[Rfam]
RNA sequence: AAUGGAAGGUGACCAAGCUUAUACUUGUAUAGGUUAGGAAAGUCCAUGCUAGCACAUUCUGAAAUGAAUGUAGUGUUUGUGCCUAAGGAAACAAUAACUUAGGGUACAUCUUAGCGAUGUAACGGCGUCAAAUGAUCUAAGGCUUAUGCUAUGAUCUAUGACCAAACGUGCCACAGAAACGAGAUACUUAGAAAUAAGUAUAUGAAACGCGGUAAACCCCUCAAGCUAGAAACCCAAAUUUUGGUAGGGGAACGUAAAAUAGCGAAACAAAGCUAAAUUACGCUACUUAUGUAGAGAUAAAUGGUCACACCCUUUAGGGAUACAGAACAUGGCUUAUGCAC
Numbered sequence: 001a002a003u004g005g006a007a008g009g010u011g012a013c014c015a016a017g018c019u020u021a022u023a024c025u026u027g028u029a030u031a032g033g034u035u036a037g038g039a040a041a042g043u044c045c046a047u048g049c050u051a052g053c054a055c056a057u058u059c060u061g062a063a064a065u066g067a068a069u070g071u072a073g074u075g076u077u078u079g080u081g082c083c084u085a086a087g088g089a090a091a092c093a094a095u096a097a098c099u100u101a102g103g104g105u106a107c108a109u110c111u112u113a114g115c116g117a118u119g120u121a122a123c124g125g126c127g128u129c130a131a132a133u134g135a136u137c138u139a140a141g142g143c144u145u146a147u148g149c150u151a152u153g154a155u156c157u158a159u160g161a162c163c164a165a166a167c168g169u170g171c172c173a174c175a176g177a178a179a180c181g182a183g184a185u186a187c188u189u190a191g192a193a194a195u196a197a198g199u200a201u202a203u204g205a206a207a208c209g210c211g212g213u214a215a216a217c218c219c220c221u222c223a224a225g226c227u228a229g230a231a232a233c234c235c236a237a238a239u240u241u242u243g244g245u246a247g248g249g250g251a252a253c254g255u256a257a258a259a260u261a262g263c264g265a266a267a268c269a270a271a272g273c274u275a276a277a278u279u280a281c282g283c284u285a286c287u288u289a290u291g292u293a294g295a296g297a298u299a300a301a302u303g304g305u306c307a308c309a310c311c312c313u314u315u316a317g318g319g320a321u322a323c324a325g326a327a328c329a330u331g332g333c334u335u336a337u338g339c340a341c
Stems, first nucleotide, its partner, number of pairs: 004341001007337001009308006016035006040335003044332005049229005054071006077224003081220001082103006104123001105121006124219002127162004134156004141150003168217002170213003185200006233249003253282005283294004311319002